[Rfam]
RNA: Mitochondrial DNA control region secondary structure A
Organism: Callithrix jacchus
RNA sequence: CUUAUUGAUGGCCCAACAAUAAAGUACUUUGCAAGACACAACAUUUCAAACUUUAUGUAAUUAGUACAUUAUUGUUUUACCCCAUGAAUAAUAUCUA
Dot-bracket structure: ....((.((((....((((((((....)))).(((........)))........(((((.....)))))..))))......)))).)).........